[Rfam]
RNA: THF (Tetrahydrofolate) riboswitch aptamer
Organism: Clostridiales bacterium oral taxon 876
RNA sequence: GGCAGAGUAGAUAAAUGUGCGUCAAGUGCUAGUUGGACGGGAAGUUGCCGCUAGACGAAAGCUUUAAAAAGCUGCGGUGCAUUUAUCGCAUUCCGCUGCC
Numbered sequence: 001g002g003c004a005g006a007g008u009a010g011a012u013a014a015a016u017g018u019g020c021g022u023c024a025a026g027u028g029c030u031a032g033u034u035g036g037a038c039g040g041g042a043a044g045u046u047g048c049c050g051c052u053a054g055a056c057g058a059a060a061g062c063u064u065u066a067a068a069a070a071g072c073u074g075c076g077g078u079g080c081a082u083u084u085a086u087c088g089c090a091u092u093c094c095g096c097u098g099c100c
Stems, first nucleotide, its partner, number of pairs: 001100005010087010020076003026056002029054005035049002040093003044089001060073004